[Rfam]
The record is a 74-nucleotide RNA sequence from Nothobranchius furzeri, which matches "mir-196 microRNA precursor family" in Rfam. A reference for the family is Lim et al. (2003), "Vertebrate microRNA genes", Science. Gene Ontology terms of the family: gene silencing by miRNA and RISC complex.

RNA sequence: GAAGUGGUUUAGGUAGUUUCAUGUUGUUGGGGUGCUUUUCUGACUCUACAACAGGAAACUGUCUGGAUCGCCCC
Numbered sequence: 001g002a003a004g005u006g007g008u009u010u011a012g013g014u015a016g017u018u019u020c021a022u023g024u025u026g027u028u029g030g031g032g033u034g035c036u037u038u039u040c041u042g043a044c045u046c047u048a049c050a051a052c053a054g055g056a057a058a059c060u061g062u063c064u065g066g067a068u069c070g071c072c073c074c
Stems, first nucleotide, its partner, number of pairs: 004071016022053006029046003